Shown here is a 157-nucleotide RNA sequence from Striga hermonthica, a member of the family "MIR168 microRNA precursor family". For this family Rfam cites "MicroRNAs in plants" (Reinhart et al., Genes Dev, 2002). Lineage of the source: Eukaryota > Viridiplantae > asterids > Orobanchaceae > Striga. Rfam 15.1 lists 518 matches to the family in 218 species.
[Rfam]
RNA sequence: AUUGCGGCGGCCUCUGACUCGCUUGGUGCAGGUCGGGAACUAUCUCCGCCGGCGGCGGCUGCGGCGUCGCUUGCGAGAUUUAAACGGCAUCGUCGUCGUUUAUGGCGGAAAGUAUGGUUCCCGCCUUGCAUCAACUGAAUCGGAGUCCGCGGUGAAU
Number, nucleotide and partner (000 for none) at each position: 001a000002u000003u000004g000005c000006g000007g000008c000009g000010g000011c000012c000013u144014c143015u000016g000017a140018c000019u138020c137021g000022c000023u134024u133025g132026g131027u130028g129029c128030a127031g126032g125033u000034c123035g122036g121037g120038a119039a000040c117041u116042a115043u114044c000045u000046c000047c000048g000049c000050c000051g000052g000053c000054g000055g000056c000057g000058g000059c000060u000061g000062c000063g000064g000065c000066g000067u000068c000069g000070c000071u000072u000073g000074c000075g000076a000077g000078a000079u000080u000081u000082a000083a000084a000085c000086g000087g000088c000089a000090u000091c000092g000093u000094c000095g000096u000097c000098g000099u000100u000101u000102a000103u000104g000105g000106c000107g000108g000109a000110a000111a000112g000113u000114a043115u042116g041117g040118u000119u038120c037121c036122c035123g034124c000125c032126u031127u030128g029129c028130a027131u026132c025133a024134a023135c000136u000137g020138a019139a000140u017141c000142g000143g014144a013145g000146u000147c000148c000149g000150c000151g000152g000153u000154g000155a000156a000157u000